[Rfam]
RNA: c-di-GMP-I-GGC riboswitch aptamer
RNA sequence: UACGAUAAAGGUAAACCCUGAGUGAUCAGGGGGCGCAAAGUUAAGGAUCUCUGAUAAACCCACAAAGAGCAGAUAGCAGGAAGAUAGCCUUACUGCCGAAG
Number, nucleotide and partner (000 for none) at each position: 001u101002a000003c098004g097005a000006u000007a000008a000009a000010g000011g036012u035013a000014a000015a000016c031017c030018c029019u028020g027021a026022g000023u000024g000025a000026u021027c020028a019029g018030g017031g016032g000033g000034c087035g012036c011037a000038a000039a094040g093041u092042u000043a000044a090045g089046g088047a085048u084049c083050u000051c000052u000053g000054a000055u000056a000057a000058a000059c000060c000061c000062a000063c000064a000065a000066a000067g000068a000069g000070c000071a000072g000073a000074u000075a000076g000077c000078a000079g000080g000081a000082a000083g049084a048085u047086a000087g034088c046089c045090u044091u000092a041093c040094u039095g000096c000097c004098g003099a000100a000101g001